[Rfam]
Overview:
The record is a 127-nucleotide RNA from Neogobius melanostomus, which matches "Small nucleolar RNA SNORA49" in Rfam. The family's consensus secondary structure was predicted with RNAalifold. Rfam links the family to the GO terms RNA processing and nucleolus. The snoRNA ACA49 has no identified RNA target. NB genomic sequence 1-nt different from published. By type it is an H/ACA-box small nucleolar RNA.
RNA sequence: GGUCCCCUCUUACACCAGUACCUCCUGACACUGGAAAGUUCUGGUUUUCCAAGGGGAUAAAAUAAAUUGCUUCUUUCCCUCCCUGCUGGACAUUGUUCCGUUCAGGGCCUACAGACGAGCAGACAUU
Numbered sequence: 001g002g003u004c005c006c007c008u009c010u011u012a013c014a015c016c017a018g019u020a021c022c023u024c025c026u027g028a029c030a031c032u033g034g035a036a037a038g039u040u041c042u043g044g045u046u047u048u049c050c051a052a053g054g055g056g057a058u059a060a061a062a063u064a065a066a067u068u069g070c071u072u073c074u075u076u077c078c079c080u081c082c083c084u085g086c087u088g089g090a091c092a093u094u095g096u097u098c099c100g101u102u103c104a105g106g107g108c109c110u111a112c113a114g115a116c117g118a119g120c121a122g123a124c125a126u127u
Base pairs, nucleotide, nucleotide: 003057004056005055006054007053008052015044016043017042018041020039023035024034025033068121069120070119072118073117081107082106083105084104085103088099089098